[Rfam]
RNA: TPP riboswitch aptamer (THI element)
RNA sequence: UGCAACGCCUCGGGGGGCCAUCCGGCUGAGACGCGCUUGCGGACCCGUUGAACCUGAUCCGGUUGACCCCGGCGGAGGGAAGGUUUCGCUGCCCUUU
Numbered sequence: 001u002g003c004a005a006c007g008c009c010u011c012g013g014g015g016g017g018c019c020a021u022c023c024g025g026c027u028g029a030g031a032c033g034c035g036c037u038u039g040c041g042g043a044c045c046c047g048u049u050g051a052a053c054c055u056g057a058u059c060c061g062g063u064u065g066a067c068c069c070c071g072g073c074g075g076a077g078g079g080a081a082g083g084u085u086u087c088g089c090u091g092c093c094c095u096u097u
Stems, first nucleotide, its partner, number of pairs: 007084004011047004017026003033040002053078003059072004